[Rfam]
RNA sequence: UUAUAUAUAUGUAUGUAAUUGCGGGGUUCUAAGUUUUACAAGAAAUCCAACUGAAAGUUUCUUAAGUAAAAAAUUUUCGGUUGGAUUUUCUGUAAAACUUAGAACCCUGCAAUUACAUACGCAUAUAUAA
Numbered sequence: 001u002u003a004u005a006u007a008u009a010u011g012u013a014u015g016u017a018a019u020u021g022c023g024g025g026g027u028u029c030u031a032a033g034u035u036u037u038a039c040a041a042g043a044a045a046u047c048c049a050a051c052u053g054a055a056a057g058u059u060u061c062u063u064a065a066g067u068a069a070a071a072a073a074u075u076u077u078c079g080g081u082u083g084g085a086u087u088u089u090c091u092g093u094a095a096a097a098c099u100u101a102g103a104a105c106c107c108u109g110c111a112a113u114u115a116c117a118u119a120c121g122c123a124u125a126u127a128u129a130a
Stems, first nucleotide, its partner, number of pairs: 001130008010121016027104014070089007
A member of the RNA family "MIR9555 microRNA precursor family" from Brassica rapa, 130 nucleotides long. It scores 129 bits against the family's covariance model. Rfam links the family to the GO terms RISC complex and miRNA-mediated post-transcriptional gene silencing. NCBI's taxonomy places the organism under Eukaryota, Streptophytina, Spermatophyta, Mesangiospermae, Brassica.